RNA sequence: ACAAAAUAAAAUAUUCGCUCUUAUAUAAUUCUGAUAAUAGGGUUCAGAAGUUUCUACAGAGUAGCCUUAAACUACUUUACUAUAGGAGAUGUUAUUAGGAUG
Numbered sequence: 001a002c003a004a005a006a007u008a009a010a011a012u013a014u015u016c017g018c019u020c021u022u023a024u025a026u027a028a029u030u031c032u033g034a035u036a037a038u039a040g041g042g043u044u045c046a047g048a049a050g051u052u053u054c055u056a057c058a059g060a061g062u063a064g065c066c067u068u069a070a071a072c073u074a075c076u077u078u079a080c081u082a083u084a085g086g087a088g089a090u091g092u093u094a095u096u097a098g099g100a101u102g
Stems, first nucleotide, its partner, number of pairs: 018088008029049006058078007
The record is a 102-nucleotide RNA from Clostridium botulinum, which matches "Purine riboswitch aptamer" in Rfam. A reference for the family is Mandal et al. (2003), "Riboswitches Control Fundamental Biochemical Pathways in Bacillus subtilis and Other Bacteria", Cell. The organism belongs to Clostridium botulinum F, within Bacteria.